Source information: Purine riboswitch aptamer: a 103-nucleotide RNA sequence from Paenibacillus donghaensis. For this family Rfam cites "Riboswitches Control Fundamental Biochemical Pathways in Bacillus subtilis and Other Bacteria" (Mandal et al., Cell, 2003). Riboswitches are metabolite binding domains within certain messenger RNAs that serve as precision sensors for their corresponding targets. NCBI's taxonomy places the organism under Bacteria, Bacillota, Caryophanales, Paenibacillaceae, Paenibacillus. It scores 60 bits against the family's covariance model.
RNA sequence: ACAAACCAAUUUCAUAACUCUUGUAUAAGCUCAUUAAUUUGGUUUGAGCGUUUCUACAGGCAACCGUAAAUUGCCCCAGGCUACAAGAGGCGUAAGCACAGUU
Dot-bracket structure: .................((((((((...(((((...........))))).........(((((.......)))))......))))))))..............